[Rfam]
RNA: permuted transfer-messenger RNA
Organism: bacterium
RNA sequence: GAUACUAAACCUUUAUCAGAAUAGACAUUUCGGACUCGGGGGCGGUACCCGAUGCCUCCACCAUAAAAAAUUUUUCCUAUGGGGGCAAAAUAGCUUCGACGGAUGUAAUAAAGGGUAAAGCUGUAUUAAGUGAUGAUUCCGUCUUUUAAAACGGGUCAAACAAAAAUGAACGCAAAUGAUAAUCGUUCUUUCGCAAUGGCUGCUUAA
Numbered sequence: 001g002a003u004a005c006u007a008a009a010c011c012u013u014u015a016u017c018a019g020a021a022u023a024g025a026c027a028u029u030u031c032g033g034a035c036u037c038g039g040g041g042g043c044g045g046u047a048c049c050c051g052a053u054g055c056c057u058c059c060a061c062c063a064u065a066a067a068a069a070a071u072u073u074u075u076c077c078u079a080u081g082g083g084g085g086c087a088a089a090a091u092a093g094c095u096u097c098g099a100c101g102g103a104u105g106u107a108a109u110a111a112a113g114g115g116u117a118a119a120g121c122u123g124u125a126u127u128a129a130g131u132g133a134u135g136a137u138u139c140c141g142u143c144u145u146u147u148a149a150a151a152c153g154g155g156u157c158a159a160a161c162a163a164a165a166a167u168g169a170a171c172g173c174a175a176a177u178g179a180u181a182a183u184c185g186u187u188c189u190u191u192c193g194c195a196a197u198g199g200c201u202g203c204u205u206a207a
Stems, first nucleotide, its partner, number of pairs: 001127005014117004026105003030102003036052005053087007129144002